[Rfam]
RNA sequence: GGAGACCGCGGCCACGCGGAGUAGGAUCGAGGGUACAGUCUCC
Numbered sequence: 001g002g003a004g005a006c007c008g009c010g011g012c013c014a015c016g017c018g019g020a021g022u023a024g025g026a027u028c029g030a031g032g033g034u035a036c037a038g039u040c041u042c043c
Stems, first nucleotide, its partner, number of pairs: 002042005011034003015029002017025001
Coronavirus 3' stem-loop II-like motif (s2m): a 43-nucleotide RNA sequence from Mamastrovirus hominis.
About the family: The s2m motif is found in the 3' UTRs of astrovirus, coronavirus and equine rhinovirus genomes. Its function is unknown, but various viral 3' UTR regions have been found to play roles in viral replication and packaging. The seed alignment was expanded in 2020 by Eric Nawrocki.
The family's consensus secondary structure is taken from published work.
The source organism's lineage runs through Viruses, Orthornavirae, Stellavirales, Astroviridae and Mamastrovirus hominis.
For this family Rfam cites "A common RNA motif in the 3' end of the genomes of astroviruses, avian infectious bronchitis virus and an equine rhinovirus" (Jonassen et al., J Gen Virol, 1998).